Description: Shown here is a 153-nucleotide sequence from Clostridiales bacterium CHKCI001, a member of the family "Clostridiales-1 RNA".
[Rfam]
RNA sequence: UAAAAGUGUCGUCAAUGUCCAGCCAGCCAGGGAAUUUAUACCCUACGCUGACUGGACAUUAGAUGAUCUGACCUGUAUGAGCAAGUACGGCAUUCCCCUGGCGAAUACGGGCAGCGAUGUCGAGAGUGCACAGCACGAAGACAUGGACUUUUA
Numbered sequence: 001u002a003a004a005a006g007u008g009u010c011g012u013c014a015a016u017g018u019c020c021a022g023c024c025a026g027c028c029a030g031g032g033a034a035u036u037u038a039u040a041c042c043c044u045a046c047g048c049u050g051a052c053u054g055g056a057c058a059u060u061a062g063a064u065g066a067u068c069u070g071a072c073c074u075g076u077a078u079g080a081g082c083a084a085g086u087a088c089g090g091c092a093u094u095c096c097c098c099u100g101g102c103g104a105a106u107a108c109g110g111g112c113a114g115c116g117a118u119g120u121c122g123a124g125a126g127u128g129c130a131c132a133g134c135a136c137g138a139a140g141a142c143a144u145g146g147a148c149u150u151u152u153a
Stems, first nucleotide, its partner, number of pairs: 001153007008067004014060009024050004030043003034039001072111007081102002084099001115146001117144005126136004